[Rfam]
RNA sequence: AUUGAUGCAAUCAAUAUACCGCAGACAGUAACUGACGUAUGUCUCAAUUUGUUACCGAGGUAGUAUUGUCAAACAAAUGACAACACUUCCUCAUUGUGGGAAGUGUUCUUUUAUACACAU
Numbered sequence: 001a002u003u004g005a006u007g008c009a010a011u012c013a014a015u016a017u018a019c020c021g022c023a024g025a026c027a028g029u030a031a032c033u034g035a036c037g038u039a040u041g042u043c044u045c046a047a048u049u050u051g052u053u054a055c056c057g058a059g060g061u062a063g064u065a066u067u068g069u070c071a072a073a074c075a076a077a078u079g080a081c082a083a084c085a086c087u088u089c090c091u092c093a094u095u096g097u098g099g100g101a102a103g104u105g106u107u108c109u110u111u112u113a114u115a116c117a118c119a120u
Stems, first nucleotide, its partner, number of pairs: 028055005034043003084105008
RNA: Ribosomal protein L10 leader
Organism: Sharpea azabuensis